A member of the RNA family "L31-Actinobacteria ribosomal protein leader" from Streptacidiphilus rugosus, 45 nucleotides long. It is one of the family's seed sequences. NCBI's taxonomy places the organism under Bacteria, Bacillati, Actinomycetota, Streptomycetaceae, Streptacidiphilus rugosus. Pairs were carried over by alignment from the consensus structure, which is taken from published work.

[Rfam]
RNA sequence: UCGGUCCCGGUUCACGAACGGCAGCCCGCCGUCCGACCCGGUGCC
Numbered sequence: 001u002c003g004g005u006c007c008c009g010g011u012u013c014a015c016g017a018a019c020g021g022c023a024g025c026c027c028g029c030c031g032u033c034c035g036a037c038c039c040g041g042u043g044c045c
Base pairs, nucleotide, nucleotide: 003045004044005043007041008040009039010038015035016034018032019031020030021029022028